[Rfam]
RNA sequence: CGCUUCUGCCCUUCCUGGGCGUUUCCUCCCUAAUGAACUGCCGCGCCCUCACCGGCGCGGCUUUUUUUUUGGCCGUU
Numbered sequence: 001c002g003c004u005u006c007u008g009c010c011c012u013u014c015c016u017g018g019g020c021g022u023u024u025c026c027u028c029c030c031u032a033a034u035g036a037a038c039u040g041c042c043g044c045g046c047c048c049u050c051a052c053c054g055g056c057g058c059g060g061c062u063u064u065u066u067u068u069u070u071g072g073c074c075g076u077u
Stems, first nucleotide, its partner, number of pairs: 008020004040061008

A member of the RNA family "Makes More Granules Regulator RNA (mmgR)" from Phenylobacterium parvum, 77 nucleotides long.
SuhB later renamed mmgR (makes more granules regulator) was a putative non-coding RNA found multiple times in the Agrobacterium tumefaciens genome and related alpha-proteobacteria. Other non-coding RNAs uncovered in the same analysis include: speF, ybhL, metA, and serC.Several studies inSinorhizobium meliloti showed that suhB element is indeed a non-coding RNA:firstly it was detected on Northern blot and called Sm8RNA, secondly in an RNAseq study referred to as SmelC689.The mutant phenotype's (strain lacking the small RNA) cytoplasm contains higher content of polyhydroxybutyrate (PBH)storage granules than wild type strain. The sRNA is required to limit the PBH intracellular accumulation when the nitrogen-fixing Sinorhizobium meliloti is under condition of surplus carbon in relation to nitrogen. It has been renamed to mmgR. Further study confirmed that mmgR fine-tunes the regulation of PBH storage.Northern blot confirmed the expression of the sRNA in other rhizobia species.
The pairing is the family consensus, mapped onto this sequence.
It scores 56 bits against the family's covariance model.
Taxonomically the source falls in Phenylobacterium (Bacteria, Pseudomonadota, Alphaproteobacteria, Caulobacterales).